[Rfam]
RNA sequence: UAGAACUAAUGAUUCGAGAGACAGAAUGAUAGAGUAACGUCUUGAAAUGUUUCCCCUAAGUCUCCGACAUGCAUUAAAUGGUAGGACGUUUAAAUGUGUGAAGCUCGGUGAAGACGGCUAACAGAUACCGUAGUAAAAAAUAUAUUUUAACCGAAAAUCCUUUUAGUAAAAGGAUGUAUCCCAUAGGCCGGGGGUCCGUAAA
Numbered sequence: 001u002a003g004a005a006c007u008a009a010u011g012a013u014u015c016g017a018g019a020g021a022c023a024g025a026a027u028g029a030u031a032g033a034g035u036a037a038c039g040u041c042u043u044g045a046a047a048u049g050u051u052u053c054c055c056c057u058a059a060g061u062c063u064c065c066g067a068c069a070u071g072c073a074u075u076a077a078a079u080g081g082u083a084g085g086a087c088g089u090u091u092a093a094a095u096g097u098g099u100g101a102a103g104c105u106c107g108g109u110g111a112a113g114a115c116g117g118c119u120a121a122c123a124g125a126u127a128c129c130g131u132a133g134u135a136a137a138a139a140a141u142a143u144a145u146u147u148u149a150a151c152c153g154a155a156a157a158u159c160c161u162u163u164u165a166g167u168a169a170a171a172g173g174a175u176g177u178a179u180c181c182c183a184u185a186g187g188c189c190g191g192g193g194g195u196c197c198g199u200a201a202a
Stems, first nucleotide, its partner, number of pairs: 018053006031043002034040001054194004064108004068100005074093007115190005124180005129153002141149002157175008
RNA: Group II catalytic intron D1-D4-5
Organism: Bacillus thuringiensis